[Rfam]
RNA sequence: CUGCAUGUGGAAAUGUCUGUUCUUCGUUCUUUUAGAAGCAGGAAUACAUAUAGAUAUAGAAAACAUGCCAUAUUUUAGAAGGAAUUCUUAGGGCUGCCGAUCUUGUAAUAAAGGUCGAAUUAGCAGUGUAUGUCUCCUACAUAA
Numbered sequence: 001c002u003g004c005a006u007g008u009g010g011a012a013a014u015g016u017c018u019g020u021u022c023u024u025c026g027u028u029c030u031u032u033u034a035g036a037a038g039c040a041g042g043a044a045u046a047c048a049u050a051u052a053g054a055u056a057u058a059g060a061a062a063a064c065a066u067g068c069c070a071u072a073u074u075u076u077a078g079a080a081g082g083a084a085u086u087c088u089u090a091g092g093g094c095u096g097c098c099g100a101u102c103u104u105g106u107a108a109u110a111a112a113g114g115u116c117g118a119a120u121u122a123g124c125a126g127u128g129u130a131u132g133u134c135u136c137c138u139a140c141a142u143a144a
Stems, first nucleotide, its partner, number of pairs: 003068006016042006023035001081137003093124002098117007
RNA: Small nucleolar RNA U109
Organism: Rhinopithecus roxellana